[Rfam]
RNA sequence: GUGGAAGGAAGCUUGGUGCUGAGGCAACCCACUGAGUGUCUUCAUCACUCCUCUACUGUAGCCUUGGGGAAGGUCUGAGACAGGAGCCACCAGCUGCCCUCACAGGACAUCACUUGACCCAAGUGAAUGAGUUCACAGCAAUGAUGGAGCCAGUGGGGGACUCUCUGCAGGAGACACAGGCUGAUGAGGCCACAAAUGCUGCACCUCUCAGCUGUGGAUGUAGCUCUCUCUGGCUUUGGAAAUGGCUCAUGGCUGGCAUCCUUGAGAUCAAUGACACAGGUGAGAUACCAUGAAGUCUCAUAACCUAAUUCAGACUACUCUCCUUCCAC
Numbered sequence: 001g002u003g004g005a006a007g008g009a010a011g012c013u014u015g016g017u018g019c020u021g022a023g024g025c026a027a028c029c030c031a032c033u034g035a036g037u038g039u040c041u042u043c044a045u046c047a048c049u050c051c052u053c054u055a056c057u058g059u060a061g062c063c064u065u066g067g068g069g070a071a072g073g074u075c076u077g078a079g080a081c082a083g084g085a086g087c088c089a090c091c092a093g094c095u096g097c098c099c100u101c102a103c104a105g106g107a108c109a110u111c112a113c114u115u116g117a118c119c120c121a122a123g124u125g126a127a128u129g130a131g132u133u134c135a136c137a138g139c140a141a142u143g144a145u146g147g148a149g150c151c152a153g154u155g156g157g158g159g160a161c162u163c164u165c166u167g168c169a170g171g172a173g174a175c176a177c178a179g180g181c182u183g184a185u186g187a188g189g190c191c192a193c194a195a196a197u198g199c200u201g202c203a204c205c206u207c208u209c210a211g212c213u214g215u216g217g218a219u220g221u222a223g224c225u226c227u228c229u230c231u232g233g234c235u236u237u238g239g240a241a242a243u244g245g246c247u248c249a250u251g252g253c254u255g256g257c258a259u260c261c262u263u264g265a266g267a268u269c270a271a272u273g274a275c276a277c278a279g280g281u282g283a284g285a286u287a288c289c290a291u292g293a294a295g296u297c298u299c300a301u302a303a304c305c306u307a308a309u310u311c312a313g314a315c316u317a318c319u320c321u322c323c324u325u326c327c328a329c
Stems, first nucleotide, its partner, number of pairs: 001329004007323003012279002016275002020066005034050005075313005085254004095109002098106002110126006127250007148235006280301007